[Rfam]
RNA: Lysine riboswitch aptamer
RNA sequence: GGGGUGAGUAGAGGUGCGGUUUGCAUAAGUAAUUACGGUGAGGACCGGGAAUGCGAUGAUCCGUAAUGAAAGGGUAAACUGCCGAAGUCCGGCUAAAACCCCGUAAAUGCCGGGCUGGGCCGGCGUCAAACAGGCGUCGGACUGUCACCCGGGCUCUAUUUCCGGGUGGAGGGCUAUUCACCGA
Numbered sequence: 001g002g003g004g005u006g007a008g009u010a011g012a013g014g015u016g017c018g019g020u021u022u023g024c025a026u027a028a029g030u031a032a033u034u035a036c037g038g039u040g041a042g043g044a045c046c047g048g049g050a051a052u053g054c055g056a057u058g059a060u061c062c063g064u065a066a067u068g069a070a071a072g073g074g075u076a077a078a079c080u081g082c083c084g085a086a087g088u089c090c091g092g093c094u095a096a097a098a099c100c101c102c103g104u105a106a107a108u109g110c111c112g113g114g115c116u117g118g119g120c121c122g123g124c125g126u127c128a129a130a131c132a133g134g135c136g137u138c139g140g141a142c143u144g145u146c147a148c149c150c151g152g153g154c155u156c157u158a159u160u161u162c163c164g165g166g167u168g169g170a171g172g173g174c175u176a177u178u179c180a181c182c183g184a
Stems, first nucleotide, its partner, number of pairs: 006179006016082009032067007086116008117143002120140008145169007